[Rfam]
This 114-nucleotide sequence from Xenopus laevis belongs to the Rfam family "Potassium channel RNA editing signal". It scores 96 bits against the family's covariance model. By type it is a cis-regulatory element.

Nucleotides: 114
Base pairs, nucleotide, nucleotide: 001114002113005110008107009106011104014101015100018097020095037077038076039075040074049063050062051061
Number, partner (000 for none) and nucleotide at each position: 001114g002113u003000g004000g005110g006000u007000u008107a009106u010000g011104g012000g013000g014101a015100u016000a017000u018097g019000a020095a021000g022000c023000c024000c025000a026000u027000u028000a029000c030000u031000g032000u033000u034000g035000g036000g037077g038076g039075u040074a041000a042000g043000a044000u045000a046000g047000u048000g049063g050062g051061c052000u053000c054000c055000c056000u057000g058000u059000g060000u061051g062050c063049c064000a065000u066000a067000g068000c069000a070000g071000g072000g073000g074040u075039a076038u077037u078000g079000a080000c081000u082000a083000u084000c085000g086000c087000a088000c089000u090000a091000c092000c093000a094000g095020u096000g097018c098000c099000a100015g101014u102000g103000a104011u105000a106009g107008u108000u109000u110005c111000a112000a113002a114001c